[Rfam]
Source information: Shown here is a 215-nucleotide RNA sequence from Aureimonas sp. Leaf324, a member of the family "permuted transfer-messenger RNA". The source organism's lineage runs through Bacteria, Pseudomonadati, Alphaproteobacteria, Aurantimonadaceae and Aureimonas. Its family is annotated with RNA catabolic process in the Gene Ontology. Rfam's curators write: Bacterial tmRNA, also known as 10Sa RNA or SsrA, is named for its dual tRNA and mRNA-like properties. For this family Rfam cites "Phylogenetic analysis of tmRNA secondary structure" (Williams and Bartel, RNA, 1996). It is annotated as a non-coding RNA gene.

RNA sequence: GGCGAUAAACGGCCGAUGGAAUAAACCUUUCGGACCCGGGGGCGGUACCCGGCGCCUCCACCUGAGCCCAGCCUCGAGCGCUGGUCUGAGGCGGGGGCGAAAUAGGAUCGACGAGGGUGUAAAGAUCGUUCUUUCGCUCGGCAUUGUACCACCGUUAUCGGGCUGAAAAAGUAGUUGCCAACGACAACUAUGCGGAAGUCCGUCUCGCCGCUUAA
Numbered sequence: 001g002g003c004g005a006u007a008a009a010c011g012g013c014c015g016a017u018g019g020a021a022u023a024a025a026c027c028u029u030u031c032g033g034a035c036c037c038g039g040g041g042g043c044g045g046u047a048c049c050c051g052g053c054g055c056c057u058c059c060a061c062c063u064g065a066g067c068c069c070a071g072c073c074u075c076g077a078g079c080g081c082u083g084g085u086c087u088g089a090g091g092c093g094g095g096g097g098c099g100a101a102a103u104a105g106g107a108u109c110g111a112c113g114a115g116g117g118u119g120u121a122a123a124g125a126u127c128g129u130u131c132u133u134u135c136g137c138u139c140g141g142c143a144u145u146g147u148a149c150c151a152c153c154g155u156u157a158u159c160g161g162g163c164u165g166a167a168a169a170a171g172u173a174g175u176u177g178c179c180a181a182c183g184a185c186a187a188c189u190a191u192g193c194g195g196a197a198g199u200c201c202g203u204c205u206c207g208c209c210g211c212u213u214a215a
Base pairs, nucleotide, nucleotide: 001138002137003136004135005134014128015127016126017125026117027116028115030114031113032112036052037051038050039049040048053099054098055097056096057095058094059093139154140153141152